[Rfam]
RNA sequence: GAUUGCAACAACCCCUCUCUGUAAUCGCGGCUG
Dot-bracket structure: (((((((............))))))).......
Numbered sequence: 001g002a003u004u005g006c007a008a009c010a011a012c013c014c015c016u017c018u019c020u021g022u023a024a025u026c027g028c029g030g031c032u033g
Stems, first nucleotide, its partner, number of pairs: 001026007